[Rfam]
RNA sequence: ACCUUGCAGCUGCUGAAUCCUGUGUUUUCACAGGUACGGAGGAACCAAUUUCGGGGUUAAUCCAUGUCUAUGGUAGGGAGCCUUCUAUCCCGCACCCGUCAGCUAACUUCGGAAGCGCUAUUAUGGAAGGAGUG
Numbered sequence: 001a002c003c004u005u006g007c008a009g010c011u012g013c014u015g016a017a018u019c020c021u022g023u024g025u026u027u028u029c030a031c032a033g034g035u036a037c038g039g040a041g042g043a044a045c046c047a048a049u050u051u052c053g054g055g056g057u058u059a060a061u062c063c064a065u066g067u068c069u070a071u072g073g074u075a076g077g078g079a080g081c082c083u084u085c086u087a088u089c090c091c092g093c094a095c096c097c098g099u100c101a102g103c104u105a106a107c108u109u110c111g112g113a114a115g116c117g118c119u120a121u122u123a124u125g126g127a128a129g130g131a132g133u134g
Base pairs, nucleotide, nucleotide: 011117012116013115014114019034020033021032022031023030024029037111038110039109040108041107046053054097055096056095062073063072064071065070076091077090078089079088
RNA: c-di-AMP riboswitch aptamer (ydaO/yuaA leader)